Shown here is a 107-nucleotide RNA sequence from Plutella xylostella, a member of the family "mir-8517 microRNA precursor family".
Pairs were carried over by alignment from the consensus structure, which was predicted with RNAalifold.
Its family is annotated with RISC complex and miRNA-mediated post-transcriptional gene silencing in the Gene Ontology.
The source organism's lineage runs through Eukaryota, Panarthropoda, Neolepidoptera, Plutellidae and Plutella.
The match comes from Rfam's covariance-model search (74 bits).
RNA sequence: UUAUAGGUCGUUUUAGCUGAACUGUUUUGUCCCUCUCUAUCACUCAGAACAAAAUGUUCUUUGACAAAGAGGGACAAAUCAGCUGAACAGCUAAAACGUCCUAUAAC
Numbered sequence: 001u002u003a004u005a006g007g008u009c010g011u012u013u014u015a016g017c018u019g020a021a022c023u024g025u026u027u028u029g030u031c032c033c034u035c036u037c038u039a040u041c042a043c044u045c046a047g048a049a050c051a052a053a054a055u056g057u058u059c060u061u062u063g064a065c066a067a068a069g070a071g072g073g074a075c076a077a078a079u080c081a082g083c084u085g086a087a088c089a090g091c092u093a094a095a096a097c098g099u100c101c102u103a104u105a106a107c
Stems, first nucleotide, its partner, number of pairs: 001106006011096009020084001022082003026068006048058004